[Rfam]
A member of the RNA family "Antisense RNA which regulates isiA expression" from Synechococcus elongatus, 178 nucleotides long.
The literature on the family includes a 2006 paper in Proc Natl Acad Sci U S A by Duhring et al., "An internal antisense RNA regulates expression of the photosynthesis gene isiA".
The family has 308 seed sequences and 3,397 matches in Rfam 15.1.
The family's consensus secondary structure was predicted with PFOLD.
Taxonomically the source falls in Synechococcus elongatus (Bacteria, Bacillati, Cyanobacteriota, Synechococcus).
RNA sequence: GAUAACCAUAAAUGACCGCUGGAUUAAGCGUCGGUUGUGUUACCAAACGGACUGUCUGACUGGCUGCGUCGUAUAGGCCACCCCAAGUUGUUGCCUUUGCCACCAGCAGCAAUGCUCCAACCCCGAGGAACAGCAAGUGGUGUCCCAGAAUGAGGCCUAGUUGUUUGGGAUCAUUCCA
Dot-bracket structure: .......................................................................................................................................((((((..(((((................)))))))))))...